[Rfam]
RNA: Small nucleolar RNA snoR111
Organism: Adiantum capillus-veneris
RNA sequence: AAUAAGAAGCGAGGGUUUUUGUUGGUAAAGCCCCUGCGUCGCAGCAUGCAGAGUAGACGAAAUCUAAAGCAAGAUAUCGUUUCGGAUGCUCGCCUCUUUUAUGGGCACUUCGAUUGUUGCUUGCAUACAU
Numbered sequence: 001a002a003u004a005a006g007a008a009g010c011g012a013g014g015g016u017u018u019u020u021g022u023u024g025g026u027a028a029a030g031c032c033c034c035u036g037c038g039u040c041g042c043a044g045c046a047u048g049c050a051g052a053g054u055a056g057a058c059g060a061a062a063u064c065u066a067a068a069g070c071a072a073g074a075u076a077u078c079g080u081u082u083c084g085g086a087u088g089c090u091c092g093c094c095u096c097u098u099u100u101a102u103g104g105g106c107a108c109u110u111c112g113a114u115u116g117u118u119g120c121u122u123g124c125a126u127a128c129a130u
Base pairs, nucleotide, nucleotide: 006040007039009037010036011035013032014031016029017028018027067126070123071122072121073120076114077113078112079111085109087107088106089105090104091103